[Rfam]
RNA sequence: CCCUUAUCAAGAGUGGCGGAGGGAACAGGCCCGAUGAUGUCCGGCAACCCGCGCAGCCCGUUUUGGCUGGGUAGGGUGCCAAAUCCUGCGGUGAAGCCGAUAGAUGAGGU
Numbered sequence: 001c002c003c004u005u006a007u008c009a010a011g012a013g014u015g016g017c018g019g020a021g022g023g024a025a026c027a028g029g030c031c032c033g034a035u036g037a038u039g040u041c042c043g044g045c046a047a048c049c050c051g052c053g054c055a056g057c058c059c060g061u062u063u064u065g066g067c068u069g070g071g072u073a074g075g076g077u078g079c080c081a082a083a084u085c086c087u088g089c090g091g092u093g094a095a096g097c098c099g100a101u102a103g104a105u106g107a108g109g110u
Stems, first nucleotide, its partner, number of pairs: 002109007013042001015041003021032003026088004043080004048076002052070001084102001089099004

The record is a 110-nucleotide RNA from Ruminococcaceae bacterium CPB6, which matches "SAM riboswitch aptamer (S box leader)" in Rfam. Pairs were carried over by alignment from the consensus structure, which is taken from published work. The match comes from Rfam's covariance-model search (70 bits).